[Rfam]
RNA sequence: UGCUCCGAGGAGCGUUGCGACGAAAUUCCCCAUUUCGCCAGGCUCGGAAUCUGCAACCGCGCUCACGUUAC
Numbered sequence: 001u002g003c004u005c006c007g008a009g010g011a012g013c014g015u016u017g018c019g020a021c022g023a024a025a026u027u028c029c030c031c032a033u034u035u036c037g038c039c040a041g042g043c044u045c046g047g048a049a050u051c052u053g054c055a056a057c058c059g060c061g062c063u064c065a066c067g068u069u070a071c
Base pairs, nucleotide, nucleotide: 002050004048005047006046007045008044021037022036023035024034025033026032
Description
The family of this 71-nucleotide sequence from Rugamonas rubra is "SAH (S-adenosyl-L-homocysteine) riboswitch aptamer". Its family is annotated with S-adenosylhomocysteine metabolic process and regulation of gene expression in the Gene Ontology. The base pairs follow the family's consensus structure, which is taken from published work. On this family, see Wang et al., Mol Cell 2008: "Riboswitches that sense S-adenosylhomocysteine and activate genes involved in coenzyme recycling".